[Rfam]
RNA sequence: UGCUCAAUGAUUACAUGCCUUACAUAGGUUAUAUACGCUAUUCUUAAUGAUAUGUUAUCAAUAGGAUGAAAACAUAAAAUGUAUAUGAGAGCU
Numbered sequence: 001u002g003c004u005c006a007a008u009g010a011u012u013a014c015a016u017g018c019c020u021u022a023c024a025u026a027g028g029u030u031a032u033a034u035a036c037g038c039u040a041u042u043c044u045u046a047a048u049g050a051u052a053u054g055u056u057a058u059c060a061a062u063a064g065g066a067u068g069a070a071a072a073c074a075u076a077a078a079a080u081g082u083a084u085a086u087g088a089g090a091g092c093u
Base pairs, nucleotide, nucleotide: 002092003091004090005089
Record summary
Shown here is a 93-nucleotide RNA sequence from Papaver nudicaule, a member of the family "Small nucleolar RNA U54". Pairs were carried over by alignment from the consensus structure, which was predicted with PFOLD. Rfam 15.1 lists 614 matches to the family in 206 species. A search with the family's covariance model found it, with a score of 46 bits. The family's RNA type in Rfam is C/D-box small nucleolar RNA. Lineage of the source: Eukaryota > Streptophyta > Mesangiospermae > Papaveroideae > Papaver.